[Rfam]
RNA: IMES-1 RNA motif
RNA sequence: CAGCAACCGACUAGUGACCAACUGCAGACGGGAGACCUAGAGAGAAGCUGAAGGAAGAGACCGAAGGGUGAAAGCAUUUACAAGAGUCGGCGAUAAAAAAGAGCUUGUAAAUCCACCAAGAAUUCAAGAGAAAGAAUUCAAGGAGCUAAAGAAAAUCUCACUUUAGACCCUAAGGAACUCGAACUAAGAAAA
Numbered sequence: 001c002a003g004c005a006a007c008c009g010a011c012u013a014g015u016g017a018c019c020a021a022c023u024g025c026a027g028a029c030g031g032g033a034g035a036c037c038u039a040g041a042g043a044g045a046a047g048c049u050g051a052a053g054g055a056a057g058a059g060a061c062c063g064a065a066g067g068g069u070g071a072a073a074g075c076a077u078u079u080a081c082a083a084g085a086g087u088c089g090g091c092g093a094u095a096a097a098a099a100a101g102a103g104c105u106u107g108u109a110a111a112u113c114c115a116c117c118a119a120g121a122a123u124u125c126a127a128g129a130g131a132a133a134g135a136a137u138u139c140a141a142g143g144a145g146c147u148a149a150a151g152a153a154a155a156u157c158u159c160a161c162u163u164u165a166g167a168c169c170c171u172a173a174g175g176a177a178c179u180c181g182a183a184c185u186a187a188g189a190a191a192a
Base pairs, nucleotide, nucleotide: 001050002049003048004047011040012039013038014036015035062174066171067170076112077111078110079109080108081107082106083105084104120139121138122137123136124135128159129158130157131156146166147165148164149163150162151161